[Rfam]
RNA sequence: AACGACCACUAGGGGAGCAUAGUUGCUGAGAGGGGCAUUCGUCCCGACCCUUAUAACCUGAUUCGGAUAAUGCCGACGUAGGGAAGUGGAGACGGCCUGUU
Numbered sequence: 001a002a003c004g005a006c007c008a009c010u011a012g013g014g015g016a017g018c019a020u021a022g023u024u025g026c027u028g029a030g031a032g033g034g035g036c037a038u039u040c041g042u043c044c045c046g047a048c049c050c051u052u053a054u055a056a057c058c059u060g061a062u063u064c065g066g067a068u069a070a071u072g073c074c075g076a077c078g079u080a081g082g083g084a085a086g087u088g089g090a091g092a093c094g095g096c097c098u099g100u101u
Base pairs, nucleotide, nucleotide: 006089007088008087009086010085011051012050013049014048017026018025019024033044034043035042036041057082058081059080060079063076064075065074066073